[Rfam]
RNA: U1 spliceosomal RNA
Organism: Erinaceus europaeus
RNA sequence: AUACUUACCUGGCAAGGGAGAUACCAUGAUCACGAAGGUGGGUUUCCAGGGCGAGGCUUAUCCAUUGCACUUCGAAUGUGCUGACCCCUGCGAUUUCCCCCAAAUGUGGGAAAUUCGACCGCAUAGUUUGUGGUACUGGGGGACUGCAUUCGCACUCUCCCCUA
Numbered sequence: 001a002u003a004c005u006u007a008c009c010u011g012g013c014a015a016g017g018g019a020g021a022u023a024c025c026a027u028g029a030u031c032a033c034g035a036a037g038g039u040g041g042g043u044u045u046c047c048a049g050g051g052c053g054a055g056g057c058u059u060a061u062c063c064a065u066u067g068c069a070c071u072u073c074g075a076a077u078g079u080g081c082u083g084a085c086c087c088c089u090g091c092g093a094u095u096u097c098c099c100c101c102a103a104a105u106g107u108g109g110g111a112a113a114u115u116c117g118a119c120c121g122c123a124u125a126g127u128u129u130g131u132g133g134u135a136c137u138g139g140g141g142g143a144c145u146g147c148a149u150u151c152g153c154a155c156u157c158u159c160c161c162c163u164a
Base pairs, nucleotide, nucleotide: 012122013121017047018046019045020044021043024041025040026039027038048089049088050087051086053085055082056081057080059078060077061076063074091117092116093115094113095112096111098109099108138163139162140161141160142159143158146155